[Rfam]
RNA sequence: UACGAAGAGCAUACGGAGGAUGCCUUGGCGCCAAAGGCCGAGGAAGGACGUGUACCACUGCGAAAAGCUGCGGGGAGUUGUGGUAAGGCAUAGAUCCGCAGAUGUCCGAAUGGGGAAACCCGCCCUGGGGAAUGCCGGGGCAGCGCGUGGUGAAAAAAUAGCUGCGUUGCAGGGAACUCGGGGAAGUGAAACAUCUAAGUACCCGGAGGAAAAGAGAUGAUUCCGUUAGUAGUGGCGAACGAAAGCGGAGCAGUCCAAACCGUGUUGGUGCAAGCUGAUGCGGGGUUGGAGGACCGACGGAAGGUCUGGACCGGAUAGCGGAACCGCACUGGAAAGGCGGACCGGAGAGGGUGAGAGUCCCGUAGGCGAAAUCUGGGAAGGGCUGGUCGGGAUCCUGAGUAUCACGGGGCACGCAAACCCUGUGAGAAGCUGGGGAGACCACUCUCCAAGACUAAAUACCUUUGGCGACCGAUAGUGGACAAGUACCGUGAGGGAAAGGUGAAAAGGACCCCUGAUAGGGGAGUGAAAGAGAUCCUGAAACCGUAUGCUUACAAG
Numbered sequence: 001u002a003c004g005a006a007g008a009g010c011a012u013a014c015g016g017a018g019g020a021u022g023c024c025u026u027g028g029c030g031c032c033a034a035a036g037g038c039c040g041a042g043g044a045a046g047g048a049c050g051u052g053u054a055c056c057a058c059u060g061c062g063a064a065a066a067g068c069u070g071c072g073g074g075g076a077g078u079u080g081u082g083g084u085a086a087g088g089c090a091u092a093g094a095u096c097c098g099c100a101g102a103u104g105u106c107c108g109a110a111u112g113g114g115g116a117a118a119c120c121c122g123c124c125c126u127g128g129g130g131a132a133u134g135c136c137g138g139g140g141c142a143g144c145g146c147g148u149g150g151u152g153a154a155a156a157a158a159u160a161g162c163u164g165c166g167u168u169g170c171a172g173g174g175a176a177c178u179c180g181g182g183g184a185a186g187u188g189a190a191a192c193a194u195c196u197a198a199g200u201a202c203c204c205g206g207a208g209g210a211a212a213a214g215a216g217a218u219g220a221u222u223c224c225g226u227u228a229g230u231a232g233u234g235g236c237g238a239a240c241g242a243a244a245g246c247g248g249a250g251c252a253g254u255c256c257a258a259a260c261c262g263u264g265u266u267g268g269u270g271c272a273a274g275c276u277g278a279u280g281c282g283g284g285g286u287u288g289g290a291g292g293a294c295c296g297a298c299g300g301a302a303g304g305u306c307u308g309g310a311c312c313g314g315a316u317a318g319c320g321g322a323a324c325c326g327c328a329c330u331g332g333a334a335a336g337g338c339g340g341a342c343c344g345g346a347g348a349g350g351g352u353g354a355g356a357g358u359c360c361c362g363u364a365g366g367c368g369a370a371a372u373c374u375g376g377g378a379a380g381g382g383c384u385g386g387u388c389g390g391g392a393u394c395c396u397g398a399g400u401a402u403c404a405c406g407g408g409g410c411a412c413g414c415a416a417a418c419c420c421u422g423u424g425a426g427a428a429g430c431u432g433g434g435g436a437g438a439c440c441a442c443u444c445u446c447c448a449a450g451a452c453u454a455a456a457u458a459c460c461u462u463u464g465g466c467g468a469c470c471g472a473u474a475g476u477g478g479a480c481a482a483g484u485a486c487c488g489u490g491a492g493g494g495a496a497a498g499g500u501g502a503a504a505a506g507g508a509c510c511c512c513u514g515a516u517a518g519g520g521g522a523g524u525g526a527a528a529g530a531g532a533u534c535c536u537g538a539a540a541c542c543g544u545a546u547g548c549u550u551a552c553a554a555g
Stems, first nucleotide, its partner, number of pairs: 007550010022535001023499002027470002029467009038173002046107003049062003068101007077089003112121003122141007143170002145167007177208001178206005188195002221456001222249005232240002252453004260283007290396003294390005304383004311376006318367002324340004329336001343347001349361003402425008432447005486493002509521004
This 555-nucleotide part of an RNA from uncultured Chloroflexi bacterium 1i19 belongs to the Rfam family "Bacterial large subunit ribosomal RNA". The source organism's lineage runs through Bacteria, Bacillati and Chloroflexota. The base pairs follow the family's consensus structure, which is taken from published work.